[Rfam]
RNA sequence: UUCUCCCUGUCCUGUUCGACGGCUGUAGUGCCCGGGCGGAAUAAACAAUGAACGGGAGACCAUUCUUGUCGUGGUGUGCUGCCCCAUUGCGUGGGAUUUGCCUGAAGCGGCAUAUGGUCGCCCACCUGUUAAGGAACUCGCCGGAGGUCCUUUUAGGUUGACGGCAGGACGGGGAGAGU
Numbered sequence: 001u002u003c004u005c006c007c008u009g010u011c012c013u014g015u016u017c018g019a020c021g022g023c024u025g026u027a028g029u030g031c032c033c034g035g036g037c038g039g040a041a042u043a044a045a046c047a048a049u050g051a052a053c054g055g056g057a058g059a060c061c062a063u064u065c066u067u068g069u070c071g072u073g074g075u076g077u078g079c080u081g082c083c084c085c086a087u088u089g090c091g092u093g094g095g096a097u098u099u100g101c102c103u104g105a106a107g108c109g110g111c112a113u114a115u116g117g118u119c120g121c122c123c124a125c126c127u128g129u130u131a132a133g134g135a136a137c138u139c140g141c142c143g144g145a146g147g148u149c150c151u152u153u154u155a156g157g158u159u160g161a162c163g164g165c166a167g168g169a170c171g172g173g174g175a176g177a178g179u
Stems, first nucleotide, its partner, number of pairs: 002177014017163002030148003033144001035142004054123003058119006067112006078101002083095004
The family of this 179-nucleotide RNA sequence from Pelobacter propionicus is "6S / SsrS RNA". The family's consensus secondary structure is taken from published work. About the family: E. coli 6S RNA was the first non coding RNA to be sequenced, but its function was unknown until recently. It consists of 184 nucleotides that fold into an extended hairpin structure with a large single-stranded internal bulge. NCBI's taxonomy places the organism under Bacteria, Pseudomonadati, Desulfuromonadales, Desulfuromonadaceae, Pelobacter propionicus.